[Rfam]
RNA sequence: GGAUCGAUGAUGAUAUCCACAUAAACAUUCCUUGGAAAAGCUGAACAAAAUGAGUGAAAACUCACUACCGUCUCGCUCAUCAAACUGAGGUCC
Numbered sequence: 001g002g003a004u005c006g007a008u009g010a011u012g013a014u015a016u017c018c019a020c021a022u023a024a025a026c027a028u029u030c031c032u033u034g035g036a037a038a039a040g041c042u043g044a045a046c047a048a049a050a051u052g053a054g055u056g057a058a059a060a061c062u063c064a065c066u067a068c069c070g071u072c073u074c075g076c077u078c079a080u081c082a083a084a085c086u087g088a089g090g091u092c093c
Stems, first nucleotide, its partner, number of pairs: 001093005026056005032048003

Small nucleolar RNA SNORD116: a 93-nucleotide sequence from Chrysochloris asiatica. Its family is annotated with RNA processing and nucleolus in the Gene Ontology. Rfam classes the family as a C/D-box small nucleolar RNA. NCBI's taxonomy places the organism under Eukaryota, Deuterostomia, Amniota, Eutheria, Chrysochloris. A search with the family's covariance model found it, with a score of 108 bits. Pairs were carried over by alignment from the consensus structure, which was predicted with PFOLD.